The record is a 140-nucleotide RNA from Trifolium subterraneum, which matches "small nucleolar RNA snoR134" in Rfam. A reference for the family is Chen and Wu (2009), "Mining small RNA sequencing data: a new approach to identify small nucleolar RNAs in Arabidopsis", Nucleic Acids Res.
[Rfam]
RNA sequence: ACGCAUGUUGCAACCCCGGGCUUCUCUGAAUAAUCAAUGAAGUGAAAGCCCCAUUGCACAUGCAAAAUUGAUACCAUUCGUGUUGCAGUUCAUUUCAAUAAUUUCCACGGUAGAUCUGUGUCAAAGUAAUGGUAACAUCG
Dot-bracket structure: ..((((((.((......(((((((.((.............)).)).)))))....)))))))).........((((((..((.(((((...(((..............)))....))))).))....)))))).......